[Rfam]
RNA sequence: AACAAUUUGUCUCGUGUCCCGCGGCGUUUUAAAAAAAGUCCCAAUCAGGACAUUUUUAAAACGCCGCGGGACACGAGACAAAUUGUUCA
Numbered sequence: 001a002a003c004a005a006u007u008u009g010u011c012u013c014g015u016g017u018c019c020c021g022c023g024g025c026g027u028u029u030u031a032a033a034a035a036a037a038g039u040c041c042c043a044a045u046c047a048g049g050a051c052a053u054u055u056u057u058a059a060a061a062c063g064c065c066g067c068g069g070g071a072c073a074c075g076a077g078a079c080a081a082a083u084u085g086u087u088c089a
Base pairs, nucleotide, nucleotide: 001087002086003085004084005083006082007081008080009079010078011077012076013075014074015073016072017071018070019069020068021067022066023065024064025063026062027061028060029059030058031057032056033055034054035053

Overview:
Shown here is an 89-nucleotide RNA sequence from Pipistrellus kuhlii, a member of the family "mir-9261 microRNA precursor family". Pairs were carried over by alignment from the consensus structure, which was predicted with RNAalifold. A search with the family's covariance model found it, with a score of 91 bits. Lineage of the source: Eukaryota > Deuterostomia > Vertebrata > Amniota > Pipistrellus.